[Rfam]
RNA sequence: GUUGGAUAUGGAGACAUGACACCUAUAACUCCUAUAGGCAAAAUGGUGGGCGCAUUGUGUGCAAUUUUUGGGGUUGUUGUCAUGGUAUGUCUUCCGAGCCCUGUCUUCAUUUCGAGU
Numbered sequence: 001g002u003u004g005g006a007u008a009u010g011g012a013g014a015c016a017u018g019a020c021a022c023c024u025a026u027a028a029c030u031c032c033u034a035u036a037g038g039c040a041a042a043a044u045g046g047u048g049g050g051c052g053c054a055u056u057g058u059g060u061g062c063a064a065u066u067u068u069u070g071g072g073g074u075u076g077u078u079g080u081c082a083u084g085g086u087a088u089g090u091c092u093u094c095c096g097a098g099c100c101c102u103g104u105c106u107u108c109a110u111u112u113c114g115a116g117u
Stems, first nucleotide, its partner, number of pairs: 001117002005113001008110004013105004018100001020098001037077001040074001050062002
Shown here is a 117-nucleotide sequence from Pocillopora damicornis, a member of the family "Potassium channel RNA editing signal". Gene Ontology term of the family: adenosine to inosine editing. The source organism's lineage runs through Eukaryota, Anthozoa, Hexacorallia, Scleractinia and Pocillopora. The literature on the family includes a 2004 paper in Nat Struct Mol Biol by Bhalla et al., "Control of human potassium channel inactivation by editing of a small mRNA hairpin". Rfam's curators write: This family represents a group of sequences related to the human potassium channel Kv1.1 hairpin element which directs the efficient modification of an adenosine to inosine by an adenosine deaminase acting on RNA (ADAR). The family's consensus secondary structure is taken from published work.